[Rfam]
RNA sequence: GGGAAACGAGCGAGGGGCUGGGGCUAUGAGCCACCCCAACCCCAGGGAAAUAUAGGCUCA
Numbered sequence: 001g002g003g004a005a006a007c008g009a010g011c012g013a014g015g016g017g018c019u020g021g022g023g024c025u026a027u028g029a030g031c032c033a034c035c036c037c038a039a040c041c042c043c044a045g046g047g048a049a050a051u052a053u054a055g056g057c058u059c060a
Base pairs, nucleotide, nucleotide: 015043016042017041019039021037022036023035028059029058030057031056032055
RNA: Ma3 gene ribosomal frameshift signal
Organism: Microtus ochrogaster